The family of this 101-nucleotide sequence from Fontibacillus phaseoli is "Guanidine-I riboswitch aptamer". This family represents a conserved RNA structure found upstream of the ykkC and yxkD genes in Bacillus subtilis and related genes in other bacteria. The function of this family is unclear although it has been suggested that it may function to switch on efflux pumps and detoxification systems in response to harmful environmental molecules.
[Rfam]
RNA sequence: CACUUUGUCUCCUAGGGUUCCGCGGCAGUCGCCGGUCAUGGUCCGAGAGGGGGCACGCAGAGCAUACUCUGCGGACACGGAGGGAUAAAAGCCUGGGAGAU
Numbered sequence: 001c002a003c004u005u006u007g008u009c010u011c012c013u014a015g016g017g018u019u020c021c022g023c024g025g026c027a028g029u030c031g032c033c034g035g036u037c038a039u040g041g042u043c044c045g046a047g048a049g050g051g052g053g054c055a056c057g058c059a060g061a062g063c064a065u066a067c068u069c070u071g072c073g074g075a076c077a078c079g080g081a082g083g084g085a086u087a088a089a090a091g092c093c094u095g096g097g098a099g100a101u
Base pairs, nucleotide, nucleotide: 007054008053009052010051011050012049015044016043020041021040022037023034024033025032026031056073057072058071059070060069061068062067076096078099082094083093084092